Overview: The record is a 66-nucleotide RNA sequence from Muraenolepis orangiensis, which matches "Selenocysteine insertion sequence 1" in Rfam. Lineage of the source: Eukaryota > Neopterygii > Osteoglossocephalai > Acanthomorphata > Muraenolepis.

[Rfam]
RNA sequence: ACCAGUUCAUGAAGACUUGCACUAAAACCCCGAACUAGGGGUGGUGUGAGUCUGAUCUCACCUGGU
Numbered sequence: 001a002c003c004a005g006u007u008c009a010u011g012a013a014g015a016c017u018u019g020c021a022c023u024a025a026a027a028c029c030c031c032g033a034a035c036u037a038g039g040g041g042u043g044g045u046g047u048g049a050g051u052c053u054g055a056u057c058u059c060a061c062c063u064g065g066u
Stems, first nucleotide, its partner, number of pairs: 001066005014052010029040003
Dot-bracket structure: (((((........((((((((((.....(((......)))..)))))))))).........)))))

Annotation: By type it is a cis-regulatory element. It scores 38 bits against the family's covariance model.